A member of the RNA family "MIR2912 microRNA precursor family" from Populus tomentosa, 156 nucleotides long.
RNA sequence: UCUAAAACUCGAGAUAUGGGCUGAACACUGAAUAAUGUAUGGGUUGCAGGACAGAUUCGGACUUUUUUGUUGUUGCUAUAAUUUGGACUUGAAAACAGCCCUUUUAAAUCAUGGACUCCACAUGAAAGUUUUAGGCCUAUGUCUUAACUUUCCAUC
Numbered sequence: 001u002c003u004a005a006a007a008c009u010c011g012a013g014a015u016a017u018g019g020g021c022u023g024a025a026c027a028c029u030g031a032a033u034a035a036u037g038u039a040u041g042g043g044u045u046g047c048a049g050g051a052c053a054g055a056u057u058c059g060g061a062c063u064u065u066u067u068u069g070u071u072g073u074u075g076c077u078a079u080a081a082u083u084u085g086g087a088c089u090u091g092a093a094a095a096c097a098g099c100c101c102u103u104u105u106a107a108a109u110c111a112u113g114g115a116c117u118c119c120a121c122a123u124g125a126a127a128g129u130u131u132u133a134g135g136c137c138u139a140u141g142u143c144u145u146a147a148c149u150u151u152c153c154a155u156c
Stems, first nucleotide, its partner, number of pairs: 003154001006151002009146001011145010021134005027129003035123003041119003045115001048112001050110002054105002059100002062098002068092001072088003